Small nucleolar RNA Z266: a 91-nucleotide RNA from Brachypodium distachyon. It scores 94 bits against the family's covariance model. Gene Ontology terms of the family: nucleolus and RNA processing. The source organism's lineage runs through Eukaryota, Streptophytina, Embryophyta, Tracheophyta and Brachypodium. On this family, see Chen et al., Nucleic Acids Res 2003: "The high diversity of snoRNAs in plants: identification and comparative study of 120 snoRNA genes from Oryza sativa".

RNA sequence: CAUUGGCUGGAGUGAUGAAUCAAUUAGAUGCGCGAAGUCACCUUAUGAGCUUAACCAUUUGAGGCAUAUUUAUUGGUCUGACCAGCCAAUG
Numbered sequence: 001c002a003u004u005g006g007c008u009g010g011a012g013u014g015a016u017g018a019a020u021c022a023a024u025u026a027g028a029u030g031c032g033c034g035a036a037g038u039c040a041c042c043u044u045a046u047g048a049g050c051u052u053a054a055c056c057a058u059u060u061g062a063g064g065c066a067u068a069u070u071u072a073u074u075g076g077u078c079u080g081a082c083c084a085g086c087c088a089a090u091g
Stems, first nucleotide, its partner, number of pairs: 001091010